[Rfam]
RNA: DUF3800-XI RNA
RNA sequence: UGGGCUGGCCGAAAGGCCCUGGUCCACCCAAGGGCGGGGACGUUUUCC
Numbered sequence: 001u002g003g004g005c006u007g008g009c010c011g012a013a014a015g016g017c018c019c020u021g022g023u024c025c026a027c028c029c030a031a032g033g034g035c036g037g038g039g040a041c042g043u044u045u046u047c048c
Base pairs, nucleotide, nucleotide: 001026002025003024004023005022006021007018008017009016010015